[Rfam]
RNA sequence: AUGCCUUAAACUUAUGAGUAAGGAAAAUAACGAUUCAGGUGACGUCCAAAUCCUCAUUGCUAAUGUGAGAUGAAUUUUUGAGCAGGUAAAGGUCUCCCCUAAGGUGACCCACCUACUUUGCAGGAUGCCUGGAACCUUCCAUCUGCCCG
Numbered sequence: 001a002u003g004c005c006u007u008a009a010a011c012u013u014a015u016g017a018g019u020a021a022g023g024a025a026a027a028u029a030a031c032g033a034u035u036c037a038g039g040u041g042a043c044g045u046c047c048a049a050a051u052c053c054u055c056a057u058u059g060c061u062a063a064u065g066u067g068a069g070a071u072g073a074a075u076u077u078u079u080g081a082g083c084a085g086g087u088a089a090a091g092g093u094c095u096c097c098c099c100u101a102a103g104g105u106g107a108c109c110c111a112c113c114u115a116c117u118u119u120g121c122a123g124g125a126u127g128c129c130u131g132g133a134a135c136c137u138u139c140c141a142u143c144u145g146c147c148c149g
Stems, first nucleotide, its partner, number of pairs: 004023005032052004038046001053069005083149001085147003090144004100132001102130005108124002112120001

Annotation:
A member of the RNA family "U12 minor spliceosomal RNA" from Erinaceus europaeus, 149 nucleotides long. The family is grouped with related families in Rfam's "U2 clan". Pairs were carried over by alignment from the consensus structure. It is annotated as a spliceosomal small nuclear RNA. Rfam links the family to the GO terms U12 snRNP, pre-mRNA branch point binding and mRNA branch site recognition. The organism belongs to Erinaceus, within Eukaryota. It scores 104 bits against the family's covariance model.